[Rfam]
RNA sequence: GGUUAAACAUGAUUAUAAAACUAUUUUAUAUUUGUCUGAGGAAGUAUAUGCAGGACAUAUUGUGAAUUAGGAAUUCUUCGUUUAUGAUCUAGCC
Dot-bracket structure: ((((......................................................................................))))

A member of the RNA family "Small nucleolar RNA snR57" from Saccharomyces arboricola, 94 nucleotides long. Rfam classes the family as a C/D-box small nucleolar RNA. Rfam links the family to the GO terms RNA processing and nucleolus. NCBI's taxonomy places the organism under Eukaryota, Dikarya, Saccharomycotina, Saccharomycetaceae, Saccharomyces arboricola. A reference for the family is Lowe and Eddy (1999), "A computational screen for methylation guide snoRNAs in yeast", Science.